This 132-nucleotide sequence from Galemys pyrenaicus belongs to the Rfam family "Small nucleolar RNA SNORA31".
The match comes from Rfam's covariance-model search (48 bits).
Rfam describes the family as follows. ACA31 (SNORA31) belongs to the H/ACA class of snoRNAs which are thought to guide the sites of modification of uridines to pseudouridines. ACA31 is predicted to guide the pseudouridylation of U3713 in 28S rRNA and U218 in 18S rRNA. This family includes the mouse homologue snoMBI-161.
The organism belongs to Galemys, within Eukaryota.

[Rfam]
RNA sequence: UGCAUCUAUUUGACACACUUAGAGCAGCUCAUGUCUGUUCCUAAAGUUUCCAUUACAGACACAAGAAAAAGCGUCCUUGUGUUUCCUGUCUGUCUGACUGUGGCAUCCCAGACUGAGUUUUGGAAUACAAGA
Numbered sequence: 001u002g003c004a005u006c007u008a009u010u011u012g013a014c015a016c017a018c019u020u021a022g023a024g025c026a027g028c029u030c031a032u033g034u035c036u037g038u039u040c041c042u043a044a045a046g047u048u049u050c051c052a053u054u055a056c057a058g059a060c061a062c063a064a065g066a067a068a069a070a071g072c073g074u075c076c077u078u079g080u081g082u083u084u085c086c087u088g089u090c091u092g093u094c095u096g097a098c099u100g101u102g103g104c105a106u107c108c109c110a111g112a113c114u115g116a117g118u119u120u121u122g123g124a125a126u127a128c129a130a131g132a
Stems, first nucleotide, its partner, number of pairs: 001063002005059003011052002015049001017047003022040006074124003079119001082115001086111003091105004